[Rfam]
RNA: Small nucleolar RNA SNORA9
RNA sequence: GUGCAGACCUCCAGCGAGGCUGAGCCUGCCGUGGCUCUGUCCUUUCCUGUAGUGCCUGCUAGAGAGAUGUUGGGGCUGUUUGAGGCCCUGCUGUGGCUCUUCACUGCAGGGUUAUAGGUAAACCUCACACAAUG
Numbered sequence: 001g002u003g004c005a006g007a008c009c010u011c012c013a014g015c016g017a018g019g020c021u022g023a024g025c026c027u028g029c030c031g032u033g034g035c036u037c038u039g040u041c042c043u044u045u046c047c048u049g050u051a052g053u054g055c056c057u058g059c060u061a062g063a064g065a066g067a068u069g070u071u072g073g074g075g076c077u078g079u080u081u082g083a084g085g086c087c088c089u090g091c092u093g094u095g096g097c098u099c100u101u102c103a104c105u106g107c108a109g110g111g112u113u114a115u116a117g118g119u120a121a122a123c124c125u126c127a128c129a130c131a132a133u134g
Base pairs, nucleotide, nucleotide: 003059004058005057006056008054017043018042019041022037023036024035025034026033071127072126073125074124075123086111087110088109089108090107091106093104094103095102